[Rfam]
RNA sequence: UGACUUUGAGUCUUGGCACUGGGAGAAUUCACAGUUGACUUUAUUAUUCUGUGGUUCUGCGGGUGCCAAAACUUAAAAACC
Numbered sequence: 001u002g003a004c005u006u007u008g009a010g011u012c013u014u015g016g017c018a019c020u021g022g023g024a025g026a027a028u029u030c031a032c033a034g035u036u037g038a039c040u041u042u043a044u045u046a047u048u049c050u051g052u053g054g055u056u057c058u059g060c061g062g063g064u065g066c067c068a069a070a071a072c073u074u075a076a077a078a079a080c081c
Stems, first nucleotide, its partner, number of pairs: 005077006013069006020062001022060001023058001025057003029054006

About this RNA:
Shown here is an 81-nucleotide RNA from Drosophila melanogaster, a member of the family "mir-263 microRNA precursor family". Its Rfam clan is "mir-182 clan". The family has 52 seed sequences and 368 matches in Rfam 15.1. A reference for the family is Li et al. (2009), "Direct sequencing and expression analysis of a large number of miRNAs in Aedes aegypti and a multi-species survey of novel mosquito miRNAs", BMC Genomics. Rfam links the family to the GO terms miRNA-mediated post-transcriptional gene silencing and RISC complex. Lineage of the source: Eukaryota > Mandibulata > Muscomorpha > Drosophilidae > Sophophora.